[Rfam]
RNA: SAM riboswitch aptamer (S box leader)
RNA sequence: AUCUUAUCCAGAGAGGUGGAGGGACUGGCCCAUUGAAACCUCAGCAACAGGCAUAAUUGCACUGUGCUAAUUCCAGAGCGUAACGCUUGAAGAUAAGAA
Dot-bracket structure: .(((((((....(((((...(((.[[[[)))......)))))((((.((.(((....)))..))))))...(]]]]((((...))))...)))))))).